The record is a 223-nucleotide part of an RNA from Sebaldella termitidis, which matches "Bacterial large subunit ribosomal RNA" in Rfam. NCBI's taxonomy places the organism under Bacteria, Fusobacteriati, Fusobacteriota, Leptotrichiaceae, Sebaldella termitidis. Pairs were carried over by alignment from the consensus structure, which is taken from published work. A search with the family's covariance model found it, with a score of 2720 bits.
RNA sequence: GAGUUAUGAUAUGUGGCAAGGUUAAGGAAGCGGAGCCGAAGGGAAACCGAGUCUUAAUAGGGCGAUAGUCGCAUGUUAUAGACGCGAAACCUAGUGAUCUAGGCCUGUCCAGGUUGAAGCUAAGGUAAGACUUAGUGGAGGACCGAACUCACCAUCGUUGAAAUGCUGGGAGAUGAGAUAGGUUUAGGGGUGAAAAGCCAAUCGAACUAGGAGAUAGCUCGUU
Numbered sequence: 001g002a003g004u005u006a007u008g009a010u011a012u013g014u015g016g017c018a019a020g021g022u023u024a025a026g027g028a029a030g031c032g033g034a035g036c037c038g039a040a041g042g043g044a045a046a047c048c049g050a051g052u053c054u055u056a057a058u059a060g061g062g063c064g065a066u067a068g069u070c071g072c073a074u075g076u077u078a079u080a081g082a083c084g085c086g087a088a089a090c091c092u093a094g095u096g097a098u099c100u101a102g103g104c105c106u107g108u109c110c111a112g113g114u115u116g117a118a119g120c121u122a123a124g125g126u127a128a129g130a131c132u133u134a135g136u137g138g139a140g141g142a143c144c145g146a147a148c149u150c151a152c153c154a155u156c157g158u159u160g161a162a163a164u165g166c167u168g169g170g171a172g173a174u175g176a177g178a179u180a181g182g183u184u185u186a187g188g189g190g191u192g193a194a195a196a197g198c199c200a201a202u203c204g205a206a207c208u209a210g211g212a213g214a215u216a217g218c219u220c221g222u223u
Stems, first nucleotide, its partner, number of pairs: 005080013020037004026031001041048002051063004083221002086218001090211006099187011110175001112144004119136006148172003152169003156165001189199003
Dot-bracket structure: ....(((((((((((((..((((..(....)..))))...((....))..((((.....))))....)))))))))))))..((.(...((((((...((((((((((((.((((...((((((......))))))....))))...(((.(((.(........).))))))..).))))))))))).(((.....)))......))))))......).))..